[Rfam]
RNA sequence: AUCGAGAAUGCCGAAAAUCGAUUAAAAGAGUAGGCU
Numbered sequence: 001a002u003c004g005a006g007a008a009u010g011c012c013g014a015a016a017a018u019c020g021a022u023u024a025a026a027a028g029a030g031u032a033g034g035c036u
Stems, first nucleotide, its partner, number of pairs: 002021004010035003